[Rfam]
RNA sequence: AUGUAUGAUAAUUCAUUCUAUGGUCCGACGGGCCUCUUGAAGGAUAAUAUAGGAUCUCCAUACCCUACUCCGACUCAAUAGGUCCACGGCGUACAGAACGGUAACAUAUUUCUCCAAUAACCUGAGCUUGGGUACGCGGGGAAACUCAACCCCUUGGGAGGAUGGGUCAUAUGGCUAAAUUGAGCGGG
Numbered sequence: 001a002u003g004u005a006u007g008a009u010a011a012u013u014c015a016u017u018c019u020a021u022g023g024u025c026c027g028a029c030g031g032g033c034c035u036c037u038u039g040a041a042g043g044a045u046a047a048u049a050u051a052g053g054a055u056c057u058c059c060a061u062a063c064c065c066u067a068c069u070c071c072g073a074c075u076c077a078a079u080a081g082g083u084c085c086a087c088g089g090c091g092u093a094c095a096g097a098a099c100g101g102u103a104a105c106a107u108a109u110u111u112c113u114c115c116a117a118u119a120a121c122c123u124g125a126g127c128u129u130g131g132g133u134a135c136g137c138g139g140g141g142a143a144a145c146u147c148a149a150c151c152c153c154u155u156g157g158g159a160g161g162a163u164g165g166g167u168c169a170u171a172u173g174g175c176u177a178a179a180u181u182g183a184g185c186g187g188g
Base pairs, nucleotide, nucleotide: 012098013097014096017093022065023064025053026052069188070187071186072185074184075183076182077181078180079179080092082090084101085100105173106172107171108170109169112166114165115164120163122161123160128149129148130147131146132145133144151158152157
RNA: drz-agam-2-2 ribozyme